A member of the RNA family "DUF3800-I RNA" from Gleimia europaea, 126 nucleotides long.
The source organism's lineage runs through Bacteria, Bacillati, Actinomycetales, Actinomycetaceae and Gleimia europaea.
The sequence is in the family's curated seed alignment.
Rfam's curators write: Actinobacteria, Firmicutes, Fusobacteria, Proteobacteria (1 example), Tenericutes (2 examples).
Rfam classes the family as a small RNA.

RNA sequence: UUCAAUUGCAGGCGCAGUCAUGGAGCUGCGGGCUGUACACGUGAGGUAACCGAAUUAACGUUUAAGCGGUCUUGUAAGGCCGUCGGCUUCACGGGGCCAUCCGGAUAGGGUGGCCUUUUACUGUAA
Numbered sequence: 001u002u003c004a005a006u007u008g009c010a011g012g013c014g015c016a017g018u019c020a021u022g023g024a025g026c027u028g029c030g031g032g033c034u035g036u037a038c039a040c041g042u043g044a045g046g047u048a049a050c051c052g053a054a055u056u057a058a059c060g061u062u063u064a065a066g067c068g069g070u071c072u073u074g075u076a077a078g079g080c081c082g083u084c085g086g087c088u089u090c091a092c093g094g095g096g097c098c099a100u101c102c103g104g105a106u107a108g109g110g111u112g113g114c115c116u117u118u119u120a121c122u123g124u125a126a
Stems, first nucleotide, its partner, number of pairs: 007037005013030006040093006050086003053062003066083006094116009